[Rfam]
RNA sequence: CAGAUGACCUUAACAUAGGCACUGACUUGAAUAUCUUUGCAGUAAGUGCUACAUGUUGGGGUAGUCUUG
Number, nucleotide and partner (000 for none) at each position: 001c000002a000003g000004a065005u064006g000007a062008c061009c060010u059011u058012a000013a056014c055015a054016u053017a000018g050019g049020c048021a047022c046023u045024g000025a043026c042027u041028u000029g000030a000031a000032u000033a000034u000035c000036u000037u000038u000039g000040c000041a027042g026043u025044a000045a023046g022047u021048g020049c019050u018051a000052c000053a016054u015055g014056u013057u000058g011059g010060g009061g008062u007063a000064g005065u004066c000067u000068u000069g000
Record summary
The family of this 69-nucleotide RNA sequence from Oryzias latipes is "miR-430 microRNA precursor family". Gene Ontology terms of the family: miRNA-mediated post-transcriptional gene silencing and RISC complex. On this family, see Giraldez et al., Science 2005: "MicroRNAs regulate brain morphogenesis in zebrafish". Pairs were carried over by alignment from the consensus structure, which was predicted with RNAalifold.